[Rfam]
RNA sequence: UCCUCGCGAAUGCCGCGUUUCUUUGCUCACAAACCGACUCGUACACACGUACGCCGUCUUCAAUGGCAAAUGAGAAAUUCGGAGUAAUCUUCACCUUUUGCACGCCAUCCGACAAUCCUCUCACUGAAGUUUGCGCGGCUCUGGCAUCUGCCCGUGAGGGCCUACCAUGACACUCAUGGCUGCACUUGGCAUCAGAAAUCUCAGCCGCGGGUCAGCGCAUAUGCUCUGUGCUCGUUGGCUAUGGGAGCUAGUGCGAAGAUUGUGUUUGAGAGAACACUUUAGUGCAAUACGCGGCGUAUCUGAGUCUCUUGCUAUCUUCGGGUGGUGGAGAGGAGGGUAUCAUUCGAUUCCGAUUACUCUUGUGAGGA
Numbered sequence: 001u002c003c004u005c006g007c008g009a010a011u012g013c014c015g016c017g018u019u020u021c022u023u024u025g026c027u028c029a030c031a032a033a034c035c036g037a038c039u040c041g042u043a044c045a046c047a048c049g050u051a052c053g054c055c056g057u058c059u060u061c062a063a064u065g066g067c068a069a070a071u072g073a074g075a076a077a078u079u080c081g082g083a084g085u086a087a088u089c090u091u092c093a094c095c096u097u098u099u100g101c102a103c104g105c106c107a108u109c110c111g112a113c114a115a116u117c118c119u120c121u122c123a124c125u126g127a128a129g130u131u132u133g134c135g136c137g138g139c140u141c142u143g144g145c146a147u148c149u150g151c152c153c154g155u156g157a158g159g160g161c162c163u164a165c166c167a168u169g170a171c172a173c174u175c176a177u178g179g180c181u182g183c184a185c186u187u188g189g190c191a192u193c194a195g196a197a198a199u200c201u202c203a204g205c206c207g208c209g210g211g212u213c214a215g216c217g218c219a220u221a222u223g224c225u226c227u228g229u230g231c232u233c234g235u236u237g238g239c240u241a242u243g244g245g246a247g248c249u250a251g252u253g254c255g256a257a258g259a260u261u262g263u264g265u266u267u268g269a270g271a272g273a274a275c276a277c278u279u280u281a282g283u284g285c286a287a288u289a290c291g292c293g294g295c296g297u298a299u300c301u302g303a304g305u306c307u308c309u310u311g312c313u314a315u316c317u318u319c320g321g322g323u324g325g326u327g328g329a330g331a332g333g334a335g336g337g338u339a340u341c342a343u344u345c346g347a348u349u350c351c352g353a354u355u356a357c358u359c360u361u362g363u364g365a366g367g368a
Stems, first nucleotide, its partner, number of pairs: 001368004007362003012295007022070004040053005080352005089258004150161004165179004182254005188248001203240003296340006
RNA: Nuclear RNase P
Organism: Pseudocercospora musae